The family of this 74-nucleotide sequence from Myotis davidii is "mir-9193 microRNA precursor family". Lineage of the source: Eukaryota > Teleostomi > Eutheria > Vespertilionidae > Myotis. Pairs were carried over by alignment from the consensus structure, which was predicted with RNAalifold.
RNA sequence: AAAGGGGGGGGGGGGUCCCUCAGCCUAGAUUGCGAGAGGGUGCAGGCAAGGCCGAGGGACCCCACCGGUGCAUG
Numbered sequence: 001a002a003a004g005g006g007g008g009g010g011g012g013g014g015g016u017c018c019c020u021c022a023g024c025c026u027a028g029a030u031u032g033c034g035a036g037a038g039g040g041u042g043c044a045g046g047c048a049a050g051g052c053c054g055a056g057g058g059a060c061c062c063c064a065c066c067g068g069u070g071c072a073u074g
Base pairs, nucleotide, nucleotide: 004071006069009066010065012063013062014061015060016059017058018057019056020055021054023052024051025050028047030045031044032043033042034041